Description:
Shown here is a 182-nucleotide sequence from Planococcus salinus, a member of the family "Lysine riboswitch aptamer". The match comes from Rfam's covariance-model search (97 bits). NCBI's taxonomy places the organism under Bacteria, Bacillota, Bacilli, Caryophanaceae, Planococcus. Rfam links the family to the GO term lysine biosynthetic process. Pairs were carried over by alignment from the consensus structure, which is taken from published work.
[Rfam]
RNA sequence: UUUCUGGGUAGAGGCUGCAGGGCUGAUCAGUAAGAUGCGCUCAUAUGACGAAAGAAAACGCAUCUGAAAGGGAGUUUUGCCGAAGCUUGUGUUCCUCCGUCAAAAGGAAGACAGGCUGGGGGCAUCUUGAAUAAGGAUGUCACUGUCAUUUAUGCACGCAUAAAUGGUGAGCUACAGGCUUG
Numbered sequence: 001u002u003u004c005u006g007g008g009u010a011g012a013g014g015c016u017g018c019a020g021g022g023c024u025g026a027u028c029a030g031u032a033a034g035a036u037g038c039g040c041u042c043a044u045a046u047g048a049c050g051a052a053a054g055a056a057a058a059c060g061c062a063u064c065u066g067a068a069a070g071g072g073a074g075u076u077u078u079g080c081c082g083a084a085g086c087u088u089g090u091g092u093u094c095c096u097c098c099g100u101c102a103a104a105a106g107g108a109a110g111a112c113a114g115g116c117u118g119g120g121g122g123c124a125u126c127u128u129g130a131a132u133a134a135g136g137a138u139g140u141c142a143c144u145g146u147c148a149u150u151u152a153u154g155c156a157c158g159c160a161u162a163a164a165u166g167g168u169g170a171g172c173u174a175c176a177g178g179c180u181u182g
Stems, first nucleotide, its partner, number of pairs: 008175004017080008033065007084117007092109004118144002121141008146167007
Dot-bracket structure: .......((((.....((((((((........(((((((...................))))))).......))))))))...(((((((.((((..........)))).)))))))((.((((((((.....)))))))).)).(((((((........)))))))....)))).......